[Rfam]
RNA sequence: UUACAGAACGCUUUAGCUAUUUAACUGUUUUGUCUAUCUCUGUUCAACAAUUUGUUCUUUGACAGAGAGGGACAAAACAGUUCAAUAGCUAAAGCGUCCUGUAAC
Numbered sequence: 001u002u003a004c005a006g007a008a009c010g011c012u013u014u015a016g017c018u019a020u021u022u023a024a025c026u027g028u029u030u031u032g033u034c035u036a037u038c039u040c041u042g043u044u045c046a047a048c049a050a051u052u053u054g055u056u057c058u059u060u061g062a063c064a065g066a067g068a069g070g071g072a073c074a075a076a077a078c079a080g081u082u083c084a085a086u087a088g089c090u091a092a093a094g095c096g097u098c099c100u101g102u103a104a105c
Base pairs, nucleotide, nucleotide: 001104002103003102004101005100006099011094012093013092014091015090016089017088018087019086020085021084023082024081025080026079027078028077029066030065031064032063033062034061046056047055048054049053

The family of this 105-nucleotide sequence from Plutella xylostella is "mir-8517 microRNA precursor family". Taxonomically the source falls in Plutella (Eukaryota, Eumetazoa, Pterygota, Aparaglossata). It scores 102 bits against the family's covariance model. Its family is annotated with miRNA-mediated post-transcriptional gene silencing and RISC complex in the Gene Ontology.